[Rfam]
About this RNA:
The family of this 74-nucleotide RNA from Medicago truncatula is "MIR5272 microRNA precursor family". Its family is annotated with RISC complex and miRNA-mediated post-transcriptional gene silencing in the Gene Ontology. Lineage of the source: Eukaryota > Mesangiospermae > Pentapetalae > Fabales > Medicago. Rfam 15.1 lists 271 matches to the family in 4 species.
Nucleotides: 074
Base pairs, nucleotide, nucleotide: 011061012060013059014058015057016056017055018054021053022052026048027047028046030045031044033042034041
Number, partner (000 for none) and nucleotide at each position: 001000u002000u003000u004000g005000a006000u007000g008000u009000g010000a011061a012060u013059u014058g015057a016056u017055u018054u019000g020000u021053g022052u023000u024000u025000a026048g027047a028046u029000a030045u031044a032000c033042u034041u035000g036000c037000u038000u039000a040000a041034a042033a043000a044031u045030g046028a047027u048026u049000c050000u051000u052022a053021u054018g055017a056016g057015u058014u059013g060012a061011u062000g063000u064000u065000g066000u067000u068000u069000g070000g071000a072000u073000a074000a